Shown here is a 110-nucleotide RNA sequence from Corallincola holothuriorum, a member of the family "Ribosomal S15 leader". Taxonomically the source falls in Corallincola (Bacteria, Pseudomonadota, Gammaproteobacteria, Psychromonadaceae). The literature on the family includes a 1996 paper in Biochimie by Benard et al., "Pseudoknot and translational control in the expression of the S15 ribosomal protein". Gene Ontology term of the family: regulation of translation, ncRNA-mediated. Rfam's curators write: The E. coli Ribosomal S15 gene 5' UTR can form two alternative structures. One that is a series of three hairpins, The other includes a pseudoknot. It scores 71 bits against the family's covariance model.
[Rfam]
RNA sequence: GUUCCCCGCUGAAUUAGUGAUUGGGGGGAACGUUAUUAAAUUGGAGAAUAGUGAUGUCACUAAGUACUGAAGAAAAAGCAAGACUGGUUGCAGAAUUUGGCCGUGGCGAA
Numbered sequence: 001g002u003u004c005c006c007c008g009c010u011g012a013a014u015u016a017g018u019g020a021u022u023g024g025g026g027g028g029a030a031c032g033u034u035a036u037u038a039a040a041u042u043g044g045a046g047a048a049u050a051g052u053g054a055u056g057u058c059a060c061u062a063a064g065u066a067c068u069g070a071a072g073a074a075a076a077a078g079c080a081a082g083a084c085u086g087g088u089u090g091c092a093g094a095a096u097u098u099g100g101c102c103g104u105g106g107c108g109a110a
Stems, first nucleotide, its partner, number of pairs: 007026001009024004041063004046058001